[Rfam]
RNA sequence: GGUGCAGGACAGGCGAUCGCGGCCGCAAGUGGGGAAACCCCGCGGGUGAGGAAAGUCCGGGCUUCAUAGGGCAAGGAUGCCGGUUAACGGCCGGUGGAGGAAACUCUAAGGAUAGUGCAACAGAAAAGAAACCGCCAGCGCUUGCGCUGGUAAGGGUGGAAUGGCAGUGUAAGAGACUACCGCGCUUUUGGUAACAAAAGUGGCAGUGUAAACCCCAUCCGAAGCAAGACCGAAUCAAAGCAAUGAUGUGGCCCGCUAGCUUUAGGUAGGUUGCUUGAGGCGACUGGCAACAGUCGUCCUAGAUAGAUGAUCGCUCAACGACAUAACCCGGCUUAUCGUUCUGCUUAUAUG
Dot-bracket structure: .(.(((((((((((((((.((.((((...............)))).))....[[[.[[[[[((((....[[...((((((((((.....)))))(((((....)))).)((...(((((............(((((((((....)))))))..)).......((.(((.......))).))(((((((((....)))))))).)..)))..)))))))))))))...((((.....(((((......((...]]))..))))).....))))......((((((((....))))))))..........)))))))...........]]]]]]]].).))))))).).....
Bacterial RNase P class A: a 351-nucleotide RNA sequence from Agathobacter ruminis.
Gene Ontology terms of the family: ribonuclease P activity, tRNA processing and dimeric ribonuclease P complex.
Ribonuclease P (RNase P) is a ubiquitous endoribonuclease, found in archaea, bacteria and eukarya as well as chloroplasts and mitochondria. Its best characterised activity is the generation of mature 5'-ends of tRNAs by cleaving the 5'-leader elements of precursor-tRNAs. Cellular RNase Ps are ribonucleoproteins. RNA from bacterial RNase Ps retains its catalytic activity in the absence of the protein subunit, i.e. it is a ribozyme. Isolated eukaryotic and archaeal RNase P RNA has not been shown to retain its catalytic function, but is still essential for the catalytic activity of the holoenzyme. Although the archaeal and eukaryotic holoenzyme s have a much greater protein content than the bacterial ones, the RNA cores from all the three lineages are homologous -- helices corresponding to P1, P2, P3, P4, and P10/11 are common to all cellular RNase P RNAs. Yet, there is considerable sequence variation, particularly among the eukaryotic RNAs. Identified in Yersinia as Ysr151/RnpB.
By type it is a ribozyme.